[Rfam]
RNA: Archaeal large subunit ribosomal RNA, nucleotides 2748 to 3036
RNA sequence: GGUUGUCUGAGGGGAAGCCGCUCUUAGUACGAGAGGAACAGAGUAGCGCGGCCUCUGGUCUACCGGUUGUUCGAUAGAGCAACGCCGGGCAGCUAAGCUGUUGUGGAUAAGAGCUGAAAGCAUCUAAGCUCGAAGCCACUCCUGAGAAAAGACAGCCAUUUGCUUUGAAUUUCCUUCGGGAAAUUUUAGCAAAGAAGAAUCGUUAUAGAAGAUAACGUUGAUGGUUAGGAAGUGUAAGUUGGGAGGCUUCGGCCGACUAAUUUAGCUUGCCUUUUCCAAUAAUUCAACG
Numbered sequence: 001g002g003u004u005g006u007c008u009g010a011g012g013g014g015a016a017g018c019c020g021c022u023c024u025u026a027g028u029a030c031g032a033g034a035g036g037a038a039c040a041g042a043g044u045a046g047c048g049c050g051g052c053c054u055c056u057g058g059u060c061u062a063c064c065g066g067u068u069g070u071u072c073g074a075u076a077g078a079g080c081a082a083c084g085c086c087g088g089g090c091a092g093c094u095a096a097g098c099u100g101u102u103g104u105g106g107a108u109a110a111g112a113g114c115u116g117a118a119a120g121c122a123u124c125u126a127a128g129c130u131c132g133a134a135g136c137c138a139c140u141c142c143u144g145a146g147a148a149a150a151g152a153c154a155g156c157c158a159u160u161u162g163c164u165u166u167g168a169a170u171u172u173c174c175u176u177c178g179g180g181a182a183a184u185u186u187u188a189g190c191a192a193a194g195a196a197g198a199a200u201c202g203u204u205a206u207a208g209a210a211g212a213u214a215a216c217g218u219u220g221a222u223g224g225u226u227a228g229g230a231a232g233u234g235u236a237a238g239u240u241g242g243g244a245g246g247c248u249u250c251g252g253c254c255g256a257c258u259a260a261u262u263u264a265g266c267u268u269g270c271c272u273u274u275u276c277c278a279a280u281a282a283u284u285c286a287a288c289g
Stems, first nucleotide, its partner, number of pairs: 001157008011143004017047002020044005048101005056095003063088005068081005104138003111131005197285004201217005222278003227272003230268003238261005245254001